[Rfam]
RNA sequence: CAUUUGUAAGAACCUUUUGAAUCAAGCAUUGCGGCGAUUCAAAAGGUUCUCGGC
Numbered sequence: 001c002a003u004u005u006g007u008a009a010g011a012a013c014c015u016u017u018u019g020a021a022u023c024a025a026g027c028a029u030u031g032c033g034g035c036g037a038u039u040c041a042a043a044a045g046g047u048u049c050u051c052g053g054c
Base pairs, nucleotide, nucleotide: 007052009050010049011048012047013046014045015044016043017042018041019040020039021038022037023036

Overview: Rfam assigns this 54-nucleotide RNA sequence from Clausena excavata to the family "Plastid-ccsA-ndhD-2 3UTR RNA". A reference for the family is Richter et al. (2023), "Retrograde signaling in plants: A critical review focusing on the GUN pathway and beyond", Plant Commun. Pairs were carried over by alignment from the consensus structure, which was predicted with LocARNA. Rfam classes the family as a cis-regulatory element. Rfam describes the family as follows. Plastid ccsA-ndhD-2 is a non-coding RNA (ncRNA) recognised in plastids. It was found in the three prime untranslated region (3UTR) of ccsA and ndhD genes, its 3UTR location suggests a role in transcript maturation.